[Rfam]
RNA sequence: AAUGCGAUGAUGAGUUAAUAAAAGGUUGAGGCAGUGGUGGCCUCUUUGGUCACCGUGAGCCGUCAAACCAAAAAAACGACUUCUCUUUCCACUGAGCAUU
Dot-bracket structure: (((((..........................................................................................)))))
Rfam assigns this 100-nucleotide RNA from Panicum miliaceum to the family "Small nucleolar RNA Z152/R70/R12/".
The literature on the family includes a 2001 paper in J Mol Biol by Barneche et al., "Identification of 66 box C/D snoRNAs in Arabidopsis thaliana: extensive gene duplications generated multiple isoforms predicting new ribosomal RNA 2'-O-methylation sites".
A search with the family's covariance model found it, with a score of 68 bits.
The source organism's lineage runs through Eukaryota, Poales, Paniceae, Panicum and Panicum sect. Panicum.
Gene Ontology terms of the family: nucleolus and RNA processing.